The family of this 101-nucleotide sequence from Oryza sativa is "Small nucleolar RNA R44/J54/Z268 family". Gene Ontology terms of the family: RNA processing and nucleolus. Lineage of the source: Eukaryota > Mesangiospermae > commelinids > Oryza > Oryza sativa.

[Rfam]
Nucleotides: 101
Stems, first nucleotide, its partner, number of pairs: 002100005
Number, partner (000 for none) and nucleotide at each position: 001000g002100a003099u004098g005097c006096a007000u008000a009000u010000g011000a012000u013000g014000a015000g016000a017000a018000g019000c020000a021000a022000g023000a024000c025000a026000g027000g028000g029000a030000c031000a032000u033000c034000a035000g036000c037000a038000c039000c040000c041000c042000c043000u044000u045000u046000c047000u048000g049000u050000g051000a052000a053000g054000g055000u056000g057000g058000g059000g060000a061000g062000u063000g064000a065000u066000c067000g068000a069000c070000u071000a072000a073000a074000g075000u076000c077000u078000c079000a080000a081000u082000g083000g084000g085000a086000a087000u088000c089000u090000c091000u092000c093000u094000g095000a096006u097005g098004c099003a100002u101000a